The record is a 60-nucleotide RNA from Acidovorax sp. MR-S7, which matches "Xanthine riboswitch aptamer (NMT1 RNA)" in Rfam. It is one of the family's seed sequences. Taxonomically the source falls in Acidovorax (Bacteria, Pseudomonadota, Betaproteobacteria, Burkholderiales). The family's consensus secondary structure is taken from published work. Gene Ontology term of the family: purine nucleobase binding.
RNA sequence: CGCGAGAGUAGAAGCGUUCAGCCGGGCCGCAGGCCGCCCGCGCGGGUCAUUGCUCUUGUU
Numbered sequence: 001c002g003c004g005a006g007a008g009u010a011g012a013a014g015c016g017u018u019c020a021g022c023c024g025g026g027c028c029g030c031a032g033g034c035c036g037c038c039c040g041c042g043c044g045g046g047u048c049a050u051u052g053c054u055c056u057u058g059u060u
Stems, first nucleotide, its partner, number of pairs: 005056006015045001019046001021043002023040004